[Rfam]
The family of this 174-nucleotide sequence from Desulfosporosinus sp. Sb-LF is "Group II catalytic intron D1-D4-3". NCBI's taxonomy places the organism under Bacteria, Bacillota, Clostridia, Eubacteriales, Desulfosporosinus. It scores 125 bits against the family's covariance model.

RNA sequence: UCCACCGUGAGGUGGAAUCUGAAGGAAGCGUGAUGAGCAAAGUUCCGACCCGAGGAACACGAAGCGUAUUAGGCAUCUGAAGUGGGAUGAGUCUGCCAAACAAGACAAAAUCCAAUAAACUGUACGGACACGAGGGUGUAGAUGCGGCGGGUACAUGGAAUGAAAGUAAUCGUC
Numbered sequence: 001u002c003c004a005c006c007g008u009g010a011g012g013u014g015g016a017a018u019c020u021g022a023a024g025g026a027a028g029c030g031u032g033a034u035g036a037g038c039a040a041a042g043u044u045c046c047g048a049c050c051c052g053a054g055g056a057a058c059a060c061g062a063a064g065c066g067u068a069u070u071a072g073g074c075a076u077c078u079g080a081a082g083u084g085g086g087a088u089g090a091g092u093c094u095g096c097c098a099a100a101c102a103a104g105a106c107a108a109a110a111u112c113c114a115a116u117a118a119a120c121u122g123u124a125c126g127g128a129c130a131c132g133a134g135g136g137u138g139u140a141g142a143u144g145c146g147g148c149g150g151g152u153a154c155a156u157g158g159a160a161u162g163a164a165a166g167u168a169a170u171c172g173u174c
Stems, first nucleotide, its partner, number of pairs: 001016006028174001032170001037167002042161006048152005065146004073139003077135001082131003085113004091106004
Pairs were carried over by alignment from the consensus structure. Rfam's curators write: Group II introns are found in rRNA, tRNA and mRNA of organelles in fungi, plants and protists, and also in mRNA in bacteria. A reference for the family is Bonen and Vogel (2001), "The ins and outs of group II introns", Trends Genet.